[Rfam]
RNA: Small nucleolar RNA snoR26
Organism: Nyssa sinensis
RNA sequence: UGAGCAUCAAUGAUGAAUUGCUUCUUUUGUUAUCCUUGCACUUUGAUUGUUAGUGAAGAAAAAAAUGGGGAAAAGUCAAUCUGAGAUGCUC
Numbered sequence: 001u002g003a004g005c006a007u008c009a010a011u012g013a014u015g016a017a018u019u020g021c022u023u024c025u026u027u028u029g030u031u032a033u034c035c036u037u038g039c040a041c042u043u044u045g046a047u048u049g050u051u052a053g054u055g056a057a058g059a060a061a062a063a064a065a066u067g068g069g070g071a072a073a074a075g076u077c078a079a080u081c082u083g084a085g086a087u088g089c090u091c
Stems, first nucleotide, its partner, number of pairs: 002091007